[Rfam]
RNA sequence: UUGAAGGCAUGGAGACUGAAGUCCUCUCUCUGUCCACAGAACAGGUACGGCACAGACAGUGGCCCUGCAGCUUGCCACUGUCCCACCAAUGUGCCUCAGUGCUAGCAGAGGGGCUCCAUGUGCAGGGGAAGAGGGCUCUUCAGUCUCCAUGCCCUUCAAUCUUGGGCUCCU
Numbered sequence: 001u002u003g004a005a006g007g008c009a010u011g012g013a014g015a016c017u018g019a020a021g022u023c024c025u026c027u028c029u030c031u032g033u034c035c036a037c038a039g040a041a042c043a044g045g046u047a048c049g050g051c052a053c054a055g056a057c058a059g060u061g062g063c064c065c066u067g068c069a070g071c072u073u074g075c076c077a078c079u080g081u082c083c084c085a086c087c088a089a090u091g092u093g094c095c096u097c098a099g100u101g102c103u104a105g106c107a108g109a110g111g112g113g114c115u116c117c118a119u120g121u122g123c124a125g126g127g128g129a130a131g132a133g134g135g136c137u138c139u140u141c142a143g144u145c146u147c148c149a150u151g152c153c154c155u156u157c158a159a160u161c162u163u164g165g166g167c168u169c170c171u
Stems, first nucleotide, its partner, number of pairs: 002158003006153002010149011023134005029129003033126002038103002041100001047096001050094005061082003105123003109119001111117001